[Rfam]
MIR5269 microRNA precursor family: a 79-nucleotide RNA sequence from Medicago truncatula. NCBI's taxonomy places the organism under Eukaryota, Streptophyta, Papilionoideae, Hologalegina, Medicago. The family's consensus secondary structure was predicted with RNAalifold.
RNA sequence: UUGGUUUAAACCAUUGUGAGUCCACACUUUGAAAAUUGAACACACACAAAGUGGUGGGAUAUACAUUGAUCUCAUCCAA
Numbered sequence: 001u002u003g004g005u006u007u008a009a010a011c012c013a014u015u016g017u018g019a020g021u022c023c024a025c026a027c028u029u030u031g032a033a034a035a036u037u038g039a040a041c042a043c044a045c046a047c048a049a050a051g052u053g054g055u056g057g058g059a060u061a062u063a064c065a066u067u068g069a070u071c072u073c074a075u076c077c078a079a
Stems, first nucleotide, its partner, number of pairs: 001079004006074001008072001010070001012068002015065004022057003025053007